[Rfam]
RNA sequence: GAUUUCGUCGCAAUGGUAAUUGAGCUUAGUACGAGAGGAACCGCUCAUUCAGAUAAUUGGUUUUUGCGGCUGUCCGACCGGGCAUUGCCGCGAAGCUACCAUCUGCCGGAUAAUGGCUGAACGCCUCUAAGUCAGAAUCCGUGCCAGAAAGCGACGACGCCUCCCGCACGUAUAGAUGGACACGAAUAGGCUUCGGCUUAGCGUCUUAGCAGGCAGGGAUCGCCGCGGCCCAGGAAGCGGGUUGCGGUACCUUGCGGAUUGUAAUUUCAGCACGAGCGGGGUCGAAUCCCUUGCAGACGACUUGGAUGUGCGAAAGGGUCCUGUAAGCAGUAGAGUAGCCUUGUUGUUACGAUCUGCUGAGGGUAAGCCCUACUUCGCCUAGAUUUCC
Numbered sequence: 001g002a003u004u005u006c007g008u009c010g011c012a013a014u015g016g017u018a019a020u021u022g023a024g025c026u027u028a029g030u031a032c033g034a035g036a037g038g039a040a041c042c043g044c045u046c047a048u049u050c051a052g053a054u055a056a057u058u059g060g061u062u063u064u065u066g067c068g069g070c071u072g073u074c075c076g077a078c079c080g081g082g083c084a085u086u087g088c089c090g091c092g093a094a095g096c097u098a099c100c101a102u103c104u105g106c107c108g109g110a111u112a113a114u115g116g117c118u119g120a121a122c123g124c125c126u127c128u129a130a131g132u133c134a135g136a137a138u139c140c141g142u143g144c145c146a147g148a149a150a151g152c153g154a155c156g157a158c159g160c161c162u163c164c165c166g167c168a169c170g171u172a173u174a175g176a177u178g179g180a181c182a183c184g185a186a187u188a189g190g191c192u193u194c195g196g197c198u199u200a201g202c203g204u205c206u207u208a209g210c211a212g213g214c215a216g217g218g219a220u221c222g223c224c225g226c227g228g229c230c231c232a233g234g235a236a237g238c239g240g241g242u243u244g245c246g247g248u249a250c251c252u253u254g255c256g257g258a259u260u261g262u263a264a265u266u267u268c269a270g271c272a273c274g275a276g277c278g279g280g281g282u283c284g285a286a287u288c289c290c291u292u293g294c295a296g297a298c299g300a301c302u303u304g305g306a307u308g309u310g311c312g313a314a315a316g317g318g319u320c321c322u323g324u325a326a327g328c329a330g331u332a333g334a335g336u337a338g339c340c341u342u343g344u345u346g347u348u349a350c351g352a353u354c355u356g357c358u359g360a361g362g363g364u365a366a367g368c369c370c371u372a373c374u375u376c377g378c379c380u381a382g383a384u385u386u387c388c
Base pairs, nucleotide, nucleotide: 005157006156007155008154009153010152011151014146015145016144017143019049021047022046023045024044025043050105051104052103053102054101058098059097060096065092066091067090068089069088071084072083073082074081075080107141108140109139114134115133116132117131118130163280164279165278166277167276169274284386285385286384287383288382289305290304293301310378311377312376313375314374316370317369318368320363321362327357328356329355330354332353335350336349337348338347339346
The record is a 388-nucleotide part of an RNA from Plectosphaerella cucumerina, which matches "Eukaryotic large subunit ribosomal RNA" in Rfam. Taxonomically the source falls in Plectosphaerella (Eukaryota, Fungi, saccharomyceta, Plectosphaerellaceae). A search with the family's covariance model found it, with a score of 3323 bits.